[Rfam]
RNA sequence: AUGCCUUAAACUGAUGAGUAAGGAAAAUAACGAUGCGGGGUGACGCCCGCGUCCUCGCUCAAGUAUGCGAGAGGAAUUUUUGAACGGGUACAGGUCCGUCUGCUGAGGUGACUCGCCUACUUUGUGAGAUGCCUUGCGGGACAAGGAUCUGCCCC
Numbered sequence: 001a002u003g004c005c006u007u008a009a010a011c012u013g014a015u016g017a018g019u020a021a022g023g024a025a026a027a028u029a030a031c032g033a034u035g036c037g038g039g040g041u042g043a044c045g046c047c048c049g050c051g052u053c054c055u056c057g058c059u060c061a062a063g064u065a066u067g068c069g070a071g072a073g074g075a076a077u078u079u080u081u082g083a084a085c086g087g088g089u090a091c092a093g094g095u096c097c098g099u100c101u102g103c104u105g106a107g108g109u110g111a112c113u114c115g116c117c118u119a120c121u122u123u124g125u126g127a128g129a130u131g132c133c134u135u136g137c138g139g140g141a142c143a144a145g146g147a148u149c150u151g152c153c154c155c
Base pairs, nucleotide, nucleotide: 004023005022006021007020008019032053033052034051035050036049037048038047039046054071055070056069057068058067086154087153088152089151092150093149094148095147096146097145102137103136106134107133108132109131110130112128113127114126115125116124

Rfam assigns this 155-nucleotide sequence from Chanos chanos to the family "U12 minor spliceosomal RNA".
The literature on the family includes a 2002 paper in Mol Cell by Otake et al., "The divergent U12-type spliceosome is required for pre-mRNA splicing and is essential for development in Drosophila".
Rfam classes the family as a spliceosomal small nuclear RNA.
Taxonomically the source falls in Chanos (Eukaryota, Teleostomi, Osteoglossocephalai, Ostariophysi).